[Rfam]
RNA sequence: ACACUUUAUCGACGCUCACGGUAGGGUCAGGUUCGGUCUGAGACUCAUGAGCGUACUUCGGCAAGGCUGAUUGCUGAUCUGGACCCGGGGGCGGUACCCGGCAGCUCCACCAAAGAUACAUUGUUCAGUAGUGUGUCUUUGACGGGUCUGAAACAGAAUCGACAGGCAGACAAAAAGCUAAGACGCGCUUCGGUGAGACACCACUGUUAUCGGUUCAACGUUAGUAAAUGCAAAAGAUACUAACUCUUUCGCUAGCCUGAAAAGUGCCAACGAACACAAUGAGCGGGUAGCGGUAGCUGCCUAAACGGAGCCCGGCCGGGGCUUGGCAACAGGGCCCGGCCACC
Dot-bracket structure: ............................((.((.......)).))...(((((......(.(..((........((..(((...(((((.......)))))(((.(((...................................))).)))............))).)).........))..).).)))))((((..[[.[[[)))).....]]]]]...........................................................................................((((..[.[.[[.))))..........]].].]....
Numbered sequence: 001a002c003a004c005u006u007u008a009u010c011g012a013c014g015c016u017c018a019c020g021g022u023a024g025g026g027u028c029a030g031g032u033u034c035g036g037u038c039u040g041a042g043a044c045u046c047a048u049g050a051g052c053g054u055a056c057u058u059c060g061g062c063a064a065g066g067c068u069g070a071u072u073g074c075u076g077a078u079c080u081g082g083a084c085c086c087g088g089g090g091g092c093g094g095u096a097c098c099c100g101g102c103a104g105c106u107c108c109a110c111c112a113a114a115g116a117u118a119c120a121u122u123g124u125u126c127a128g129u130a131g132u133g134u135g136u137c138u139u140u141g142a143c144g145g146g147u148c149u150g151a152a153a154c155a156g157a158a159u160c161g162a163c164a165g166g167c168a169g170a171c172a173a174a175a176a177g178c179u180a181a182g183a184c185g186c187g188c189u190u191c192g193g194u195g196a197g198a199c200a201c202c203a204c205u206g207u208u209a210u211c212g213g214u215u216c217a218a219c220g221u222u223a224g225u226a227a228a229u230g231c232a233a234a235a236g237a238u239a240c241u242a243a244c245u246c247u248u249u250c251g252c253u254a255g256c257c258u259g260a261a262a263a264g265u266g267c268c269a270a271c272g273a274a275c276a277c278a279a280u281g282a283g284c285g286g287g288u289a290g291c292g293g294u295a296g297c298u299g300c301c302u303a304a305a306c307g308g309a310g311c312c313c314g315g316c317c318g319g320g321g322c323u324u325g326g327c328a329a330c331a332g333g334g335c336c337c338g339g340c341c342a343c344c
Stems, first nucleotide, its partner, number of pairs: 029045002032042002049190005060184001062182001065179002075168002079165003085101005102150003106146003191206004197216002200214003308324004314340001316338001318336002